Rfam assigns this 74-nucleotide RNA sequence from Saccharopolyspora rectivirgula to the family "6C RNA". A reference for the family is Weinberg et al. (2007), "Identification of 22 candidate structured RNAs in bacteria using the CMfinder comparative genomics pipeline", Nucleic Acids Res. Taxonomically the source falls in Saccharopolyspora (Bacteria, Actinomycetota, Pseudonocardiales, Pseudonocardiaceae).

[Rfam]
RNA sequence: ACCGGUUCAGCUCUACCCCCCGGGGCUGAACUGGUGACGACCCCCGUCCCUCCCCCUGGCGGGGGUCGUCUCAU
Numbered sequence: 001a002c003c004g005g006u007u008c009a010g011c012u013c014u015a016c017c018c019c020c021c022g023g024g025g026c027u028g029a030a031c032u033g034g035u036g037a038c039g040a041c042c043c044c045c046g047u048c049c050c051u052c053c054c055c056c057u058g059g060c061g062g063g064g065g066u067c068g069u070c071u072c073a074u
Base pairs, nucleotide, nucleotide: 002034003033004032005031006030007029008028009027010026011025012024013023036070037069038068039067040066041065042064043063044062045061046060047059048058

Background: The match comes from Rfam's covariance-model search (68 bits).